This 269-nucleotide RNA sequence from Bacillaceae bacterium SAS-127 belongs to the Rfam family "BsrG". Rfam classes the family as a small RNA. Rfam's curators write: bsrE, bsrG and bsrH pair through intermolecular interactions with antisense sRNAs. They form type I toxin/antitoxin system that includes an mRNA encoding for a short, toxic peptide (bsrE, bsrG and bsrH) and an antitoxin that is comprised of an antisense RNA. bsrG encodes a 39-amino-acid toxin, and the 180 nucleotide antisense sRNA called SR4 acts as the antitoxin (they overlap by 123 nucleotides). SR4 interaction with the 3'UTR of bsrG RNA promotes bsrG degradation and inhibits its translation. Pairs were carried over by alignment from the consensus structure, which was predicted with WAR. Its family is annotated with autolysis and toxin activity in the Gene Ontology.
RNA sequence: CAAUAGAAUAGGUUUCUCAAGGGUGGUCGGCGCACUCCUCCGUAAGGUUAAUUUAUAUGAGGAGGGAGGUGCUGCCGAAUGACAGUGUAUGAAACAUUAACGUUAAUGAUCUCGUUUGCGGGACUGGUUGUACUCAUUCUGUCCACAAAAAAAGACUAAAAUCGCCCUUGAGUUUUGGCCAGCUCAGGCGGUUUUAGUUCGUCUUUGUGUCGAUCCCCGAUAGGGAACCUGCUAUUGUAUCGCCGUUUUCGAUGUUACCAGCAUCGAAA
Numbered sequence: 001c002a003a004u005a006g007a008a009u010a011g012g013u014u015u016c017u018c019a020a021g022g023g024u025g026g027u028c029g030g031c032g033c034a035c036u037c038c039u040c041c042g043u044a045a046g047g048u049u050a051a052u053u054u055a056u057a058u059g060a061g062g063a064g065g066g067a068g069g070u071g072c073u074g075c076c077g078a079a080u081g082a083c084a085g086u087g088u089a090u091g092a093a094a095c096a097u098u099a100a101c102g103u104u105a106a107u108g109a110u111c112u113c114g115u116u117u118g119c120g121g122g123a124c125u126g127g128u129u130g131u132a133c134u135c136a137u138u139c140u141g142u143c144c145a146c147a148a149a150a151a152a153a154g155a156c157u158a159a160a161a162u163c164g165c166c167c168u169u170g171a172g173u174u175u176u177g178g179c180c181a182g183c184u185c186a187g188g189c190g191g192u193u194u195u196a197g198u199u200c201g202u203c204u205u206u207g208u209g210u211c212g213a214u215c216c217c218c219g220a221u222a223g224g225g226a227a228c229c230u231g232c233u234a235u236u237g238u239a240u241c242g243c244c245g246u247u248u249u250c251g252a253u254g255u256u257a258c259c260a261g262c263a264u265c266g267a268a269a
Stems, first nucleotide, its partner, number of pairs: 001242001003240003007236003011232001014213002016172008025163003032072003037069005081143005087137001095108002118135001120133001185207003214226004247269010